[Rfam]
RNA sequence: UCCCCUUGGCAAUGGGCAAAGAGACACCCUGUUGGUGGUGAUGUUCUUACAUCAGUCAGGGGCAGAGCUGAUGGCAGUCCUUUGUGCAUCUUCGCUUGAUGCCUGGCUUGGUGGGCAAAGCUGUCUUAUGUCUAGGACACCUCA
Numbered sequence: 001u002c003c004c005c006u007u008g009g010c011a012a013u014g015g016g017c018a019a020a021g022a023g024a025c026a027c028c029c030u031g032u033u034g035g036u037g038g039u040g041a042u043g044u045u046c047u048u049a050c051a052u053c054a055g056u057c058a059g060g061g062g063c064a065g066a067g068c069u070g071a072u073g074g075c076a077g078u079c080c081u082u083u084g085u086g087c088a089u090c091u092u093c094g095c096u097u098g099a100u101g102c103c104u105g106g107c108u109u110g111g112u113g114g115g116c117a118a119a120g121c122u123g124u125c126u127u128a129u130g131u132c133u134a135g136g137a138c139a140c141c142u143c144a
Base pairs, nucleotide, nucleotide: 001064003062004061005060006059007058008057013054014053015052019048020047021046023042025040026039027038028037083139084138085137087135098132099131100130104128105127106126109123110122112120
The record is a 144-nucleotide sequence from Mus spicilegus, which matches "Small nucleolar RNA SNORA48" in Rfam. Rfam describes the family as follows. The snoRNA ACA 48 has been identified to guide pseudouridylation of the residue U3797 in the 28S rRNA subunit. The family is grouped with related families in Rfam's "SNORA48 clan". The family's RNA type in Rfam is H/ACA-box small nucleolar RNA. The match comes from Rfam's covariance-model search (58 bits). Taxonomically the source falls in Mus (Eukaryota, Teleostomi, Eutheria, Mus). For this family Rfam cites "Mapping to nucleotide resolution of pseudouridine residues in large subunit ribosomal RNAs from representative eukaryotes, prokaryotes, archaebacteria, mitochondria and chloroplasts" (Ofengand and Bakin, J Mol Biol, 1997).